The record is a 130-nucleotide sequence from Python bivittatus, which matches "Small nucleolar RNA SNORA63" in Rfam. It scores 114 bits against the family's covariance model. Rfam 15.1 lists 1,279 matches to the family in 601 species. The organism belongs to Python, within Eukaryota. The base pairs follow the family's consensus structure, which was predicted with PFOLD. From the family's description: E3 belongs to the H/ACA class of snoRNAs and is involved in the processing of eukaryotic pre-rRNA and has regions of complementarity to 18S rRNA. E3 is encoded in introns in the gene for protein synthesis initiation factor 4AII. Rfam classes the family as an H/ACA-box small nucleolar RNA.

RNA sequence: GUGCAGGAAAAGUUACAAUGUAGCUGUUAAGUGCUGUAUUGUCGUUCCCCCUGCAUAAAACAAAAUUGUCUCUAUUCUAUCUUUGUCUGUUUUGAUUCCGUAGCAGAUGAAGACGCUUGGUUUCAUACAA
Dot-bracket structure: ..(((((.......((((((((((........)))))))))).......)))))...........................((((.((((............)))).))))...................
Numbered sequence: 001g002u003g004c005a006g007g008a009a010a011a012g013u014u015a016c017a018a019u020g021u022a023g024c025u026g027u028u029a030a031g032u033g034c035u036g037u038a039u040u041g042u043c044g045u046u047c048c049c050c051c052u053g054c055a056u057a058a059a060a061c062a063a064a065a066u067u068g069u070c071u072c073u074a075u076u077c078u079a080u081c082u083u084u085g086u087c088u089g090u091u092u093u094g095a096u097u098c099c100g101u102a103g104c105a106g107a108u109g110a111a112g113a114c115g116c117u118u119g120g121u122u123u124c125a126u127a128c129a130a
Stems, first nucleotide, its partner, number of pairs: 003054005015042010082111004087106004